The family of this 347-nucleotide RNA from Ascochyta lentis is "Nuclear RNase P". The family is grouped with related families in Rfam's "RNaseP clan".

[Rfam]
RNA sequence: GCCUCGCCAACGCUGCGUUUCUUUGCACCCACACAGACACUGCUUGCAGUCGUCCUACCCUGCAAAUGAGAAAUUCGGAGUAAUCUUCACCUUUUGUGCUUCGGCACUACUGCCCGUAAGGGCCUGGCGUGACUCACGUCUGUACUCGGCAUCAGAAAGCUCAGGGCCCAAGAAGCUGCACGCGGGAAACUGUGUGUGGUGGAUAUGGUGUCCCUAUGGGAGUCGGUGCGAAGAUUGUGUGCUCUGUAAUGGAGUGACACUGUAGUACAAUACGCAGCGUGCCUGACCUCGAGUAGCUUCGGCGAAAGAGGAAGGGUAUCAUUCGAUUCUGAUUACUCUGGCAAGGC
Number, nucleotide and partner (000 for none) at each position: 001g347002c346003c345004u344005c000006g000007c341008c340009a339010a000011c000012g278013c277014u276015g275016c274017g273018u272019u000020u000021c000022u066023u065024u064025g063026c000027a000028c000029c000030c000031a000032c000033a000034c000035a000036g054037a053038c052039a050040c049041u048042g000043c000044u000045u000046g000047c000048a041049g040050u039051c000052g038053u037054c036055c000056u000057a000058c000059c000060c000061u000062g000063c025064a024065a023066a022067u000068g000069a000070g000071a000072a000073a000074u000075u000076c331077g330078g329079a328080g327081u000082a000083a000084u000085c233086u232087u231088c230089a000090c000091c000092u000093u000094u000095u000096g000097u000098g000099c000100u000101u000102c000103g000104g000105c000106a000107c000108u000109a000110c000111u000112g123113c122114c121115c120116g000117u000118a000119a000120g115121g114122g113123c112124c000125u000126g140127g139128c138129g137130u136131g000132a000133c000134u000135c000136a130137c129138g128139u127140c126141u000142g229143u228144a227145c226146u000147c000148g000149g000150c000151a000152u000153c000154a000155g000156a000157a000158a000159g000160c000161u000162c000163a000164g215165g214166g213167c000168c000169c000170a000171a000172g000173a000174a000175g000176c000177u000178g000179c000180a000181c000182g000183c000184g000185g000186g000187a000188a000189a000190c000191u000192g000193u000194g000195u000196g000197u000198g000199g000200u000201g000202g000203a000204u000205a000206u000207g000208g000209u000210g000211u000212c000213c166214c165215u164216a000217u000218g000219g000220g000221a000222g000223u000224c000225g000226g145227u144228g143229c142230g088231a087232a086233g085234a000235u000236u000237g000238u000239g000240u000241g000242c000243u000244c000245u000246g000247u000248a000249a000250u000251g000252g000253a000254g000255u000256g000257a000258c000259a000260c000261u000262g000263u000264a000265g000266u000267a000268c000269a000270a000271u000272a018273c017274g016275c015276a014277g013278c012279g319280u318281g317282c316283c315284u314285g000286a000287c000288c000289u000290c000291g000292a000293g000294u000295a000296g000297c000298u000299u000300c000301g000302g000303c000304g000305a000306a000307a000308g000309a000310g000311g000312a000313a000314g284315g283316g282317u281318a280319u279320c000321a000322u000323u000324c000325g000326a000327u080328u079329c078330u077331g076332a000333u000334u000335a000336c000337u000338c000339u009340g008341g007342c000343a000344a004345g003346g002347c001
The family's consensus secondary structure is taken from published work.